This 54-nucleotide sequence from Aureimonas glaciei belongs to the Rfam family "terC RNA".

RNA sequence: AACCCAGUCCGGGCCCCUCUGGCGAGACCAUUCUCGUGAUGUCGGACACUUCCC
Numbered sequence: 001a002a003c004c005c006a007g008u009c010c011g012g013g014c015c016c017c018u019c020u021g022g023c024g025a026g027a028c029c030a031u032u033c034u035c036g037u038g039a040u041g042u043c044g045g046a047c048a049c050u051u052c053c054c
Stems, first nucleotide, its partner, number of pairs: 007047006022037006
Background: Pairs were carried over by alignment from the consensus structure, which is taken from published work.